RNA sequence: GCUACAUUGAGGAGUGGUAACUCCACCACCGUUGGCGUAUGAAAUAAAUCGCCAACGGUUGAGGAGUUCCUUGGCCUCGAGGGCAU
Numbered sequence: 001g002c003u004a005c006a007u008u009g010a011g012g013a014g015u016g017g018u019a020a021c022u023c024c025a026c027c028a029c030c031g032u033u034g035g036c037g038u039a040u041g042a043a044a045u046a047a048a049u050c051g052c053c054a055a056c057g058g059u060u061g062a063g064g065a066g067u068u069c070c071u072u073g074g075c076c077u078c079g080a081g082g083g084c085a086u
Base pairs, nucleotide, nucleotide: 005082007080008079009078010077011076012075016071017070019068020067021066022065023064026061029058030057031056032055033054034053035052036051037050
Rfam assigns this 86-nucleotide RNA sequence from Agrilus planipennis to the family "mir-2765 microRNA precursor family". The base pairs follow the family's consensus structure, which was predicted with RNAalifold. It scores 62 bits against the family's covariance model. The source organism's lineage runs through Eukaryota, Protostomia, Neoptera, Agrilinae and Agrilus.